[Rfam]
This 93-nucleotide RNA from Fenollaria massiliensis belongs to the Rfam family "THF (Tetrahydrofolate) riboswitch aptamer". The literature on the family includes a 2010 paper in Chem Biol by Ames et al., "A eubacterial riboswitch class that senses the coenzyme tetrahydrofolate". The match comes from Rfam's covariance-model search (69 bits). The organism belongs to Fenollaria, within Bacteria.
RNA sequence: UACAGAGUAGAGGAAAUGCGCUAGUGUUAAAAGAUGGGAUGUAGCUUUUAAACGAAUGGCAUUGAGCCGCGGUAUUUCUUCGCUUCCGCUGUA
Numbered sequence: 001u002a003c004a005g006a007g008u009a010g011a012g013g014a015a016a017u018g019c020g021c022u023a024g025u026g027u028u029a030a031a032a033g034a035u036g037g038g039a040u041g042u043a044g045c046u047u048u049u050a051a052a053c054g055a056a057u058g059g060c061a062u063u064g065a066g067c068c069g070c071g072g073u074a075u076u077u078c079u080u081c082g083c084u085u086c087c088g089c090u091g092u093a
Base pairs, nucleotide, nucleotide: 001093002092003091004090005089010081011080012079013078014077015076016075017074018073019071020070021069024053025052027051028050029049030048031047032046033045037087038086039085041083058068059067060066